[Rfam]
Notes:
The record is a 209-nucleotide RNA from Paenibacillus donghaensis, which matches "glmS glucosamine-6-phosphate activated ribozyme aptamer" in Rfam. NCBI's taxonomy places the organism under Bacteria, Bacillati, Bacillota, Caryophanales, Paenibacillus. It is annotated as a riboswitch. The match comes from Rfam's covariance-model search (58 bits). On this family, see Winkler et al., Nature 2004: "Control of gene expression by a natural metabolite-responsive ribozyme". About the family: This entry contains a glucosamine-6-phosphate activated ribozyme that is found in the mRNA for GlmS. GlmS is an enzyme that uses fructose-6-phosphate and glutamine to generate glucosamine-6-phosphate.

RNA sequence: UGGCAACAGCAAGCGCCAGAGCUUGGUCGCGCGCGGGGGAGAAGGGACAGCCAGGAAGAAGGCUGGAACGGAUCACGGCCGACGUAAGCUGACGAGGUGGGGGUGUUCGAAAUGUUCGGCGGGGACCUCCCGGUGAUGCACCAGAGCCGUAAAUACAAAACGGAAAAUGUUAGGGCGACCUUUCACACAACGUUUCGUAUGGGUGCGUA
Numbered sequence: 001u002g003g004c005a006a007c008a009g010c011a012a013g014c015g016c017c018a019g020a021g022c023u024u025g026g027u028c029g030c031g032c033g034c035g036g037g038g039g040a041g042a043a044g045g046g047a048c049a050g051c052c053a054g055g056a057a058g059a060a061g062g063c064u065g066g067a068a069c070g071g072a073u074c075a076c077g078g079c080c081g082a083c084g085u086a087a088g089c090u091g092a093c094g095a096g097g098u099g100g101g102g103g104u105g106u107u108c109g110a111a112a113u114g115u116u117c118g119g120c121g122g123g124g125a126c127c128u129c130c131c132g133g134u135g136a137u138g139c140a141c142c143a144g145a146g147c148c149g150u151a152a153a154u155a156c157a158a159a160a161c162g163g164a165a166a167a168u169g170u171u172a173g174g175g176c177g178a179c180c181u182u183u184c185a186c187a188c189a190a191c192g193u194u195u196c197g198u199a200u201g202g203g204u205g206c207g208u209a
Base pairs, nucleotide, nucleotide: 020090021089022088023087024086025085099130100129101128102127103126107119108118109117110116131149132148133147134146135142154199155198156197158195159194160193168185169184172181173180174179